mir-184 microRNA precursor family: an 81-nucleotide RNA from Arctia plantaginis. The source organism's lineage runs through Eukaryota, Opisthokonta, Glossata, Arctiini and Arctia. On this family, see Chen et al., Genes Dev 2005: "The developmental miRNA profiles of zebrafish as determined by small RNA cloning".

RNA sequence: AAAUUUGCAUGCCCUUGUCAUUCUUCUUGCCUGUGUGCCUUGAUACUACUGGACGGAGAACUGAUAAGGGCAUGCGGUUUA
Numbered sequence: 001a002a003a004u005u006u007g008c009a010u011g012c013c014c015u016u017g018u019c020a021u022u023c024u025u026c027u028u029g030c031c032u033g034u035g036u037g038c039c040u041u042g043a044u045a046c047u048a049c050u051g052g053a054c055g056g057a058g059a060a061c062u063g064a065u066a067a068g069g070g071c072a073u074g075c076g077g078u079u080u081a
Base pairs, nucleotide, nucleotide: 012070013069014068015067016066017065018064019063020062021060022059023058024057025056026055030052031051